[Rfam]
RNA sequence: ACCUUGGCUCUAGACUGCUUACUGCCCGGGCCGCCCUCAGUAACAGUCUCCAGUCACGGCCA
Numbered sequence: 001a002c003c004u005u006g007g008c009u010c011u012a013g014a015c016u017g018c019u020u021a022c023u024g025c026c027c028g029g030g031c032c033g034c035c036c037u038c039a040g041u042a043a044c045a046g047u048c049u050c051c052a053g054u055c056a057c058g059g060c061c062a
Base pairs, nucleotide, nucleotide: 002059003058005056006055007054008053013048014047015046016045017044019043020042021041022040023039

Shown here is a 62-nucleotide sequence from Canis lupus, a member of the family "mir-132 microRNA precursor family". The literature on the family includes a 2005 paper in Genes Dev by Chen et al., "The developmental miRNA profiles of zebrafish as determined by small RNA cloning". Rfam's curators put it in the seed alignment. Pairs were carried over by alignment from the consensus structure, which was predicted with RNAalifold. Gene Ontology terms of the family: miRNA-mediated post-transcriptional gene silencing and RISC complex.